A member of the RNA family "Bacterial large subunit ribosomal RNA", 346 nucleotides of a longer RNA. The base pairs follow the family's consensus structure, which is taken from published work.
[Rfam]
RNA sequence: CGUCGAGAGAACCAUGUCGAAGGAACUCGGCAAAAUGACCCCGUAACUUCGGGAGAAGGGGUGCUCUCCUAAAUCUCACUAUGAUUAGGAAAGUGGCACAUACCAGGGGGUAGCGACUGUUUCUUAAAAACACAGGACUCUGCUAAGUGGUAACACGAUGUAUAGAGUCUGACACCUGCCCGGUGCUAGAAGGUCGGAAGACAAAGUGUAAUAAGCUUUGAAUGGAAGCCCUGGUAAACGGCGGCAGUAACUCUAACUGUCCUAAGGUAGCGAAAUUCCUUGUCGCAUAAGUAGCGACCUGCACGAAUGGUGUAACGACUGCCCCGCUGUCUCCGACAUGGACCCG
Numbered sequence: 001c002g003u004c005g006a007g008a009g010a011a012c013c014a015u016g017u018c019g020a021a022g023g024a025a026c027u028c029g030g031c032a033a034a035a036u037g038a039c040c041c042c043g044u045a046a047c048u049u050c051g052g053g054a055g056a057a058g059g060g061g062u063g064c065u066c067u068c069c070u071a072a073a074u075c076u077c078a079c080u081a082u083g084a085u086u087a088g089g090a091a092a093g094u095g096g097c098a099c100a101u102a103c104c105a106g107g108g109g110g111u112a113g114c115g116a117c118u119g120u121u122u123c124u125u126a127a128a129a130a131c132a133c134a135g136g137a138c139u140c141u142g143c144u145a146a147g148u149g150g151u152a153a154c155a156c157g158a159u160g161u162a163u164a165g166a167g168u169c170u171g172a173c174a175c176c177u178g179c180c181c182g183g184u185g186c187u188a189g190a191a192g193g194u195c196g197g198a199a200g201a202c203a204a205a206g207u208g209u210a211a212u213a214a215g216c217u218u219u220g221a222a223u224g225g226a227a228g229c230c231c232u233g234g235u236a237a238a239c240g241g242c243g244g245c246a247g248u249a250a251c252u253c254u255a256a257c258u259g260u261c262c263u264a265a266g267g268u269a270g271c272g273a274a275a276u277u278c279c280u281u282g283u284c285g286c287a288u289a290a291g292u293a294g295c296g297a298c299c300u301g302c303a304c305g306a307a308u309g310g311u312g313u314a315a316c317g318a319c320u321g322c323c324c325c326g327c328u329g330u331c332u333c334c335g336a337c338a339u340g341g342a343c344c345c346g
Stems, first nucleotide, its partner, number of pairs: 004346002007343001012341008021332003038062005047052001063094003067090006074083001095099001107325007114317002118132003135170008143160001147156003173312004178242003183239002185235005192230003199223001202220006243261006262266001272299001282298005